[Rfam]
Shown here is an 85-nucleotide sequence, a member of the family "c-di-GMP-II-GAG riboswitch aptamer". Rfam links the family to the GO terms regulation of gene expression and cyclic-di-GMP binding.
RNA sequence: CCGCGUGCGGGAGGUUGAGACGCGCGGUCCACACCCCGGCCGCCGGGACCGCGCCGAGCCACUGGCGAGACCGACCCGCGCGUGC
Number, nucleotide and partner (000 for none) at each position: 001c000002c084003g083004c082005g081006u080007g079008c078009g077010g076011g075012a000013g060014g059015u058016u000017g000018a000019g000020a000021c000022g054023c053024g052025c051026g050027g049028u048029c047030c000031a000032c000033a000034c000035c000036c000037c000038g072039g071040c000041c067042g066043c065044c064045g000046g000047g029048a028049c027050c026051g025052c024053g023054c022055c000056g000057a000058g015059c014060c013061a000062c000063u000064g044065g043066c042067g041068a000069g000070a000071c039072c038073g000074a000075c011076c010077c009078g008079c007080g006081c005082g004083u003084g002085c000
Record summary
A reference for the family is Weinberg et al. (2017), "Bioinformatic analysis of riboswitch structures uncovers variant classes with altered ligand specificity", Proc Natl Acad Sci U S A. Clan: c-di-GMP_II riboswitch clan.